[Rfam]
RNA sequence: AACGAAAGUAGAGGCGCGAUAGCUAAGAGUCAUUAUAUGGAUGCAUUCAGGUGCAAAUGAUGUAUAAUUAAAGGAGAUGUCGCCGAAGGUUUGGGUUACCUGUAAGCCCCUUCCUGGGCAACUGGUUAACAGCCAUUUGACUGUCGUAUACCUUGCGUAUAUGAAGUGCUACUUGUGUC
Numbered sequence: 001a002a003c004g005a006a007a008g009u010a011g012a013g014g015c016g017c018g019a020u021a022g023c024u025a026a027g028a029g030u031c032a033u034u035a036u037a038u039g040g041a042u043g044c045a046u047u048c049a050g051g052u053g054c055a056a057a058u059g060a061u062g063u064a065u066a067a068u069u070a071a072a073g074g075a076g077a078u079g080u081c082g083c084c085g086a087a088g089g090u091u092u093g094g095g096u097u098a099c100c101u102g103u104a105a106g107c108c109c110c111u112u113c114c115u116g117g118g119c120a121a122c123u124g125g126u127u128a129a130c131a132g133c134c135a136u137u138u139g140a141c142u143g144u145c146g147u148a149u150a151c152c153u154u155g156c157g158u159a160u161a162u163g164a165a166g167u168g169c170u171a172c173u174u175g176u177g178u179c
Stems, first nucleotide, its partner, number of pairs: 006174006016083006023076002032068008087115003093109005116142002119139003123135004144164007
The record is a 179-nucleotide RNA from Petrocella atlantisensis, which matches "Lysine riboswitch aptamer" in Rfam. The base pairs follow the family's consensus structure, which is taken from published work. The source organism's lineage runs through Bacteria, Bacillati, Bacillota, Vallitaleaceae and Petrocella.